[Rfam]
RNA sequence: UGAGGAUUGGUGACGUUACAUCCUACUUUACUCAUCCUUGCACUUUGAGCUGUGUCGUGAAGAAACAAGGAAUGUGUUCUCAGAUGCUC
Numbered sequence: 001u002g003a004g005g006a007u008u009g010g011u012g013a014c015g016u017u018a019c020a021u022c023c024u025a026c027u028u029u030a031c032u033c034a035u036c037c038u039u040g041c042a043c044u045u046u047g048a049g050c051u052g053u054g055u056c057g058u059g060a061a062g063a064a065a066c067a068a069g070g071a072a073u074g075u076g077u078u079c080u081c082a083g084a085u086g087c088u089c
Stems, first nucleotide, its partner, number of pairs: 002089003006085003
The family of this 89-nucleotide RNA from Eragrostis curvula is "Small nucleolar RNA snoR26". Rfam links the family to the GO terms RNA processing and nucleolus. A search with the family's covariance model found it, with a score of 51 bits. On this family, see Brown et al., RNA 2001: "Multiple snoRNA gene clusters from Arabidopsis".